[Rfam]
RNA sequence: UUGCAAUGAUGACUUCUUAGGACACCUUUGGAGAAACCAUGAAAAAAAAAAGUUUUUUUCUGAGCAAC
Numbered sequence: 001u002u003g004c005a006a007u008g009a010u011g012a013c014u015u016c017u018u019a020g021g022a023c024a025c026c027u028u029u030g031g032a033g034a035a036a037c038c039a040u041g042a043a044a045a046a047a048a049a050a051a052g053u054u055u056u057u058u059u060c061u062g063a064g065c066a067a068c
Stems, first nucleotide, its partner, number of pairs: 001067004
Dot-bracket structure: ((((...........................................................)))).